[Rfam]
RNA sequence: GCGCGAGGACGACCUCCCCCAUUACGGGCCAAAACCGUCGGGACGACCCGA
Number, nucleotide and partner (000 for none) at each position: 001g020002c000003g018004c000005g016006a015007g014008g013009a000010c000011g000012a000013c008014c007015u006016c005017c000018c003019c000020c001021a000022u000023u000024a000025c000026g000027g000028g000029c000030c000031a000032a000033a000034a000035c000036c000037g000038u051039c050040g049041g048042g047043a000044c000045g000046a000047c042048c041049c040050g039051a038
Background:
The record is a 51-nucleotide RNA from Sphingomonas cavernae, which matches "Guanidine-II riboswitch aptamer (mini-ykkC)" in Rfam. From the family's description: Simpler in structure and has fewer highly conserved nucleotide positions than the ykkC-yxkD leader. Despite this each of its two stem-loop structures directly bind free guanidine. Pairs were carried over by alignment from the consensus structure, which is taken from published work.